[Rfam]
The family of this 126-nucleotide RNA sequence from Rattus norvegicus is "Small nucleolar RNA SNORA71".
On this family, see Ganot et al., Genes Dev 1997: "The family of box ACA small nucleolar RNAs is defined by an evolutionarily conserved secondary structure and ubiquitous sequence elements essential for RNA accumulation".
Lineage of the source: Eukaryota > Tetrapoda > Mammalia > Eutheria > Rattus.
Rfam links the family to the GO terms nucleolus and RNA processing.
The family has 40 seed sequences and 1,805 matches in Rfam 15.1.
From the family's description: The members of this family belong to the H/ACA class of snoRNAs which bind a number of proteins (including dyskerin, Gar1p and Nop10p) to form snoRNP complexes.
The family's RNA type in Rfam is H/ACA-box small nucleolar RNA.
RNA sequence: CCCUGCAUCCGAAAGUGAUCUUGGCUGCCUGUGCCCUGGUCAUUGGUAGUGCAGGGAAAUCAUGCCGAAAGACGUGUUCUGAGUUCGGUCUAUCCUGACCCCUCCAAAUCCUAGAGCUUUCCUACA
Numbered sequence: 001c002c003c004u005g006c007a008u009c010c011g012a013a014a015g016u017g018a019u020c021u022u023g024g025c026u027g028c029c030u031g032u033g034c035c036c037u038g039g040u041c042a043u044u045g046g047u048a049g050u051g052c053a054g055g056g057a058a059a060u061c062a063u064g065c066c067g068a069a070a071g072a073c074g075u076g077u078u079c080u081g082a083g084u085u086c087g088g089u090c091u092a093u094c095c096u097g098a099c100c101c102c103u104c105c106a107a108a109u110c111c112u113a114g115a116g117c118u119u120u121c122c123u124a125c126a
Stems, first nucleotide, its partner, number of pairs: 001056008014044007023035003064123001067121005083109003087105001088099001